A member of the RNA family "SAM riboswitch aptamer (S box leader)" from Alkalihalobacillus trypoxylicola, 101 nucleotides long.

[Rfam]
RNA sequence: UUCUUAUCGAGAGAGAUGGAGGGAAUGGCCCGACGAAGUCUCAGCAACCAGCCUUUUGGUCAGGUGCUAAAUCCAUCAAGCGAAUGCUUGAAAGAUAAGGA
Numbered sequence: 001u002u003c004u005u006a007u008c009g010a011g012a013g014a015g016a017u018g019g020a021g022g023g024a025a026u027g028g029c030c031c032g033a034c035g036a037a038g039u040c041u042c043a044g045c046a047a048c049c050a051g052c053c054u055u056u057u058g059g060u061c062a063g064g065u066g067c068u069a070a071a072u073c074c075a076u077c078a079a080g081c082g083a084a085u086g087c088u089u090g091a092a093a094g095a096u097a098a099g100g101a
Base pairs, nucleotide, nucleotide: 001101002100003099004098005097006096007095008094013042014041015040016039017038021031022030023029025076026075027074028073043068044067045066046065048064049063051060052059053058072093077090078089079088080087081086
Dot-bracket structure: ((((((((....(((((...(((.[[[[)))......)))))((((.((.(((....)))..))))))...(]]]](((((....)))))..)))))))))